[Rfam]
RNA sequence: AGGUCGAACUCUGGAGAGCAGCGGGUUCACGACAGCGCCCGCUCACCGAAGGAGCAAGCAUCCGGUGUCGGAGUGACCGGAUGUGAAAUCUCUCAGGUCUCGUACAGAGGGGGCAGA
Numbered sequence: 001a002g003g004u005c006g007a008a009c010u011c012u013g014g015a016g017a018g019c020a021g022c023g024g025g026u027u028c029a030c031g032a033c034a035g036c037g038c039c040c041g042c043u044c045a046c047c048g049a050a051g052g053a054g055c056a057a058g059c060a061u062c063c064g065g066u067g068u069c070g071g072a073g074u075g076a077c078c079g080g081a082u083g084u085g086a087a088a089u090c091u092c093u094c095a096g097g098u099c100u101c102g103u104a105c106a107g108a109g110g111g112g113g114c115a116g117a
Stems, first nucleotide, its partner, number of pairs: 009109005020043007045098003048094002052092003